Rfam assigns this 378-nucleotide part of an RNA from Anaerolinea thermolimosa to the family "Bacterial large subunit ribosomal RNA".
[Rfam]
RNA sequence: GCAAAACACGUGAGAAGCGUGUUCACCGAAAAUCUAAGGUUUCCGACGGCAGGUCAAUCCGCGUCGGGUUAGUCAGGUCCUUAGGCGAGGCCGAAAGGCGUAGUCGAUGGGAAACCGGUCAACAAUCCGGUACCUGCCAACUGGAGUGAAGAGGGGACGCAGCAAGGGAAGCCAGCCCGCGAAUGGUGGUGCGGGUGCAUGAGGCGACAGGCGAAGAGGCCCGGAGGGAAAACCCUGGGCUGAGCUGAGGUCUCGUGGCGAGCCCCCGAGGCAUAAGUGAGCAGAACCUAGCUGCCGAGAAAAGCCUCUAAGCGAAGAGAGUUGGGAGCCUGUACCGCAAACCGACACAGGUAGAUGGGUAGAGAAUACCAAGGUGAA
Numbered sequence: 001g002c003a004a005a006a007c008a009c010g011u012g013a014g015a016a017g018c019g020u021g022u023u024c025a026c027c028g029a030a031a032a033u034c035u036a037a038g039g040u041u042u043c044c045g046a047c048g049g050c051a052g053g054u055c056a057a058u059c060c061g062c063g064u065c066g067g068g069u070u071a072g073u074c075a076g077g078u079c080c081u082u083a084g085g086c087g088a089g090g091c092c093g094a095a096a097g098g099c100g101u102a103g104u105c106g107a108u109g110g111g112a113a114a115c116c117g118g119u120c121a122a123c124a125a126u127c128c129g130g131u132a133c134c135u136g137c138c139a140a141c142u143g144g145a146g147u148g149a150a151g152a153g154g155g156g157a158c159g160c161a162g163c164a165a166g167g168g169a170a171g172c173c174a175g176c177c178c179g180c181g182a183a184u185g186g187u188g189g190u191g192c193g194g195g196u197g198c199a200u201g202a203g204g205c206g207a208c209a210g211g212c213g214a215a216g217a218g219g220c221c222c223g224g225a226g227g228g229a230a231a232a233c234c235c236u237g238g239g240c241u242g243a244g245c246u247g248a249g250g251u252c253u254c255g256u257g258g259c260g261a262g263c264c265c266c267c268g269a270g271g272c273a274u275a276a277g278u279g280a281g282c283a284g285a286a287c288c289u290a291g292c293u294g295c296c297g298a299g300a301a302a303a304g305c306c307u308c309u310a311a312g313c314g315a316a317g318a319g320a321g322u323u324g325g326g327a328g329c330c331u332g333u334a335c336c337g338c339a340a341a342c343c344g345a346c347a348c349a350g351g352u353a354g355a356u357g358g359g360u361a362g363a364g365a366a367u368a369c370c371a372a373g374g375u376g377a378a
Stems, first nucleotide, its partner, number of pairs: 005023006024376004032356004038336002043067006052060002074332004079110002084105003088101001090099003114131005134328002137325006146313002150309005159295004165289003171282002175196006197259002201254004208247003218241007226234002261274001264271002342351002358370004